[Rfam]
RNA sequence: GACAUGUGAUGACAAACUUAUGCGUGUCAUUUGAUUCCAAAUAAUUUGAUGUUUAGGUCAGCAAGGUGAGAGUGUUUUACUGUCAUUUGGCUGUCUAAACAUCUUUCUUUUGGCUAAUGAUAACAUUUCUUACUGAUGUC
Number, nucleotide and partner (000 for none) at each position: 001g140002a139003c138004a137005u000006g000007u000008g000009a000010u000011g000012a000013c000014a000015a000016a000017c000018u000019u000020a000021u000022g000023c000024g000025u000026g000027u000028c000029a000030u000031u000032u000033g000034a000035u000036u000037c000038c000039a000040a000041a000042u000043a000044a000045u000046u000047u000048g103049a102050u101051g100052u099053u098054u097055a096056g000057g000058u000059c000060a000061g000062c000063a000064a000065g000066g000067u000068g000069a000070g000071a000072g000073u000074g000075u000076u000077u000078u000079a000080c000081u000082g000083u000084c000085a000086u000087u000088u000089g000090g000091c000092u000093g000094u000095c000096u055097a054098a053099a052100c051101a050102u049103c048104u000105u000106u000107c000108u000109u000110u000111u000112g000113g000114c000115u000116a000117a000118u000119g000120a000121u000122a000123a000124c000125a000126u000127u000128u000129c000130u000131u000132a000133c000134u000135g000136a000137u004138g003139u002140c001
Rfam assigns this 140-nucleotide RNA from Helobdella robusta to the family "Small nucleolar RNA SNORD10". A reference for the family is Huttenhofer et al. (2001), "RNomics: an experimental approach that identifies 201 candidates for novel, small, non-messenger RNAs in mouse", EMBO J. NCBI's taxonomy places the organism under Eukaryota, Metazoa, Hirudinea, Rhynchobdellida, Helobdella. The match comes from Rfam's covariance-model search (50 bits). Its family is annotated with RNA processing and nucleolus in the Gene Ontology.